[Rfam]
RNA sequence: ACAACUUCUUCACAGGCCUUUUGGCUUAGAUCAAGUGUAGUAUCUGUUCUUUUCAGUUUAAUCUCUGAAAGGUCUCUAAGGAGACCAAUCGUGAUUAUUCUUAUUUUUGGCUUUAGGGAAGAGUCCUCUGUGCUUGCACACGACUCAUCCCACAGUGUCCCUGGUAUUACACUGCCUCCAGGCGACGCGAACCUCU
Numbered sequence: 001a002c003a004a005c006u007u008c009u010u011c012a013c014a015g016g017c018c019u020u021u022u023g024g025c026u027u028a029g030a031u032c033a034a035g036u037g038u039a040g041u042a043u044c045u046g047u048u049c050u051u052u053u054c055a056g057u058u059u060a061a062u063c064u065c066u067g068a069a070a071g072g073u074c075u076c077u078a079a080g081g082a083g084a085c086c087a088a089u090c091g092u093g094a095u096u097a098u099u100c101u102u103a104u105u106u107u108u109g110g111c112u113u114u115a116g117g118g119a120a121g122a123g124u125c126c127u128c129u130g131u132g133c134u135u136g137c138a139c140a141c142g143a144c145u146c147a148u149c150c151c152a153c154a155g156u157g158u159c160c161c162u163g164g165u166a167u168u169a170c171a172c173u174g175c176c177u178c179c180a181g182g183c184g185a186c187g188c189g190a191a192c193c194u195c196u
Stems, first nucleotide, its partner, number of pairs: 007030003015026004051070006071086006116151004121146003129140004155188005160182005
Record summary:
Shown here is a 196-nucleotide RNA from Colletotrichum gloeosporioides, a member of the family "U2 spliceosomal RNA". U2 is a small nuclear RNA (snRNA) component of the spliceosome (involved in pre-mRNA splicing). Complementary binding between U2 snRNA (in an area lying towards the 5' end but 3' to hairpin I) and the branchpoint sequence (BPS) of the intron results the bulging out of an unpaired adenosine, on the BPS, which initiates a nucleophilic attack at the intronic 5' splice site, thus starting the first of two transesterification reactions that mediate splicing. By type it is a spliceosomal small nuclear RNA. The source organism's lineage runs through Eukaryota, Opisthokonta, Ascomycota, saccharomyceta and Colletotrichum gloeosporioides species complex. The match comes from Rfam's covariance-model search (156 bits).